The record is a 61-nucleotide RNA sequence from Calidris pygmaea, which matches "mir-1898 microRNA precursor family" in Rfam.
Its family is annotated with RISC complex and miRNA-mediated post-transcriptional gene silencing in the Gene Ontology.
The organism belongs to Calidris, within Eukaryota.
It scores 78 bits against the family's covariance model.
Nucleotides: 061
Stems, first nucleotide, its partner, number of pairs: 001061010013049005020042002022039006
Number, partner (000 for none) and nucleotide at each position: 001061a002060g003059g004058u005057c006056a007055a008054a009053g010052u011000g012000u013049a014048c015047a016046g017045g018000g019000g020042a021041u022039c023038a024037a025036g026035a027034a028000a029000u030000a031000u032000u033000a034027u035026u036025c037024u038023u039022g040000u041021a042020u043000a044000a045017c046016c047015u048014g049013u050000c051000c052010a053009c054008u055007u056006u057005g058004a059003c060002u061001u